Shown here is a 90-nucleotide sequence from Striga hermonthica, a member of the family "Small nucleolar RNA snR60/Z15/Z230/Z193/J17". Taxonomically the source falls in Striga (Eukaryota, Euphyllophyta, Magnoliopsida, asterids).
RNA sequence: GAGGAUAAUGUGAUGUUCAAAAGCAUAGUUCAAAUGAUCUAAAUUUGAUUAUAAAACUCUAAUUAGUCAUUUGCUUAUCUGAUGAUUCAU
Numbered sequence: 001g002a003g004g005a006u007a008a009u010g011u012g013a014u015g016u017u018c019a020a021a022a023g024c025a026u027a028g029u030u031c032a033a034a035u036g037a038u039c040u041a042a043a044u045u046u047g048a049u050u051a052u053a054a055a056a057c058u059c060u061a062a063u064u065a066g067u068c069a070u071u072u073g074c075u076u077a078u079c080u081g082a083u084g085a086u087u088c089a090u
Base pairs, nucleotide, nucleotide: 004087005086006085008083
A reference for the family is Lowe and Eddy (1999), "A computational screen for methylation guide snoRNAs in yeast", Science. Rfam 15.1 lists 3,592 matches to the family in 1,855 species.